[Rfam]
RNA sequence: UGCACGUUAGUGAAGGCCUUACAGUAAACCAGUCCCUGGCGUGUGAGGCCUGAAGACCCUGUGUA
Numbered sequence: 001u002g003c004a005c006g007u008u009a010g011u012g013a014a015g016g017c018c019u020u021a022c023a024g025u026a027a028a029c030c031a032g033u034c035c036c037u038g039g040c041g042u043g044u045g046a047g048g049c050c051u052g053a054a055g056a057c058c059c060u061g062u063g064u065a
Base pairs, nucleotide, nucleotide: 001065002064003063004062005061015050016049017048018047019046020045021044022043023042030038031037032036
The record is a 65-nucleotide RNA sequence from Labeo rohita, which matches "Selenocysteine insertion sequence 1" in Rfam. It scores 39 bits against the family's covariance model. The organism belongs to Labeo, within Eukaryota. Rfam classes the family as a cis-regulatory element. Its family is annotated with selenocysteine incorporation in the Gene Ontology. About the family: The incorporation of selenocysteine into a protein sequence is directed by an in-frame UGA codon (usually a stop codon) within the coding region of the mRNA. Selenoprotein mRNAs contain a conserved secondary structure in the 3' UTR that is required for the distinction of UGA stop from UGA selenocysteine. The selenocysteine insertion sequence (SECIS) is around 60 nt in length and adopts a hairpin structure which is sufficiently well-defined and conserved to act as a computational screen for selenoprotein genes. The family's consensus secondary structure is taken from published work.